[Rfam]
RNA: DUF3577 RNA
RNA sequence: CGAUUGGAUAGUGCAGGAAACUGCAUGAAACUCGCCUGUAAUCCCGGCAUCAUCACACCAGUGAUGUGGCGACUUCACUUCUGCCUUCGGGCAGCUUCAAC
Numbered sequence: 001c002g003a004u005u006g007g008a009u010a011g012u013g014c015a016g017g018a019a020a021c022u023g024c025a026u027g028a029a030a031c032u033c034g035c036c037u038g039u040a041a042u043c044c045c046g047g048c049a050u051c052a053u054c055a056c057a058c059c060a061g062u063g064a065u066g067u068g069g070c071g072a073c074u075u076c077a078c079u080u081c082u083g084c085c086u087u088c089g090g091g092c093a094g095c096u097u098c099a100a101c
Base pairs, nucleotide, nucleotide: 011026012025013024014023015022016021032072033071034070035069036068051066052065053064054063055062056061081094082093083092084091